RNA sequence: UGCGACACCCAUUAAAGGAGCAGUUCUCCAUCUAGGAGCUACUUUACCUUAUUCCGAAUUC
Dot-bracket structure: ................((((.((((((.......)))))).))))................

About this RNA: A member of the RNA family "Plastid-psbN 5UTR RNA" from Manihot esculenta, 61 nucleotides long. It scores 75 bits against the family's covariance model. Pairs were carried over by alignment from the consensus structure, which was predicted with LocARNA. Plastid psbN is a non-coding RNA (ncRNA) recognised in plastids. On this family, see Richter et al., Plant Commun 2023: "Retrograde signaling in plants: A critical review focusing on the GUN pathway and beyond". The source organism's lineage runs through Eukaryota, Embryophyta, Mesangiospermae, Malpighiales and Manihot.